[Rfam]
RNA sequence: GAGAUAUUCUUAUGGGGCAAGACUUGCUUCAGUGGGGCUUUGGUGCUCACUGAGUCUGCCCCGUGAGGCAGACUCC
Numbered sequence: 001g002a003g004a005u006a007u008u009c010u011u012a013u014g015g016g017g018c019a020a021g022a023c024u025u026g027c028u029u030c031a032g033u034g035g036g037g038c039u040u041u042g043g044u045g046c047u048c049a050c051u052g053a054g055u056c057u058g059c060c061c062c063g064u065g066a067g068g069c070a071g072a073c074u075c076c
Stems, first nucleotide, its partner, number of pairs: 001075003005071001009067004014062006021056003029053008037044002
The record is a 76-nucleotide sequence from Myotis myotis, which matches "mir-9229 microRNA precursor family" in Rfam.
Taxonomically the source falls in Myotis (Eukaryota, Metazoa, Gnathostomata, Vespertilionidae).
The base pairs follow the family's consensus structure, which was predicted with RNAalifold.
The match comes from Rfam's covariance-model search (79 bits).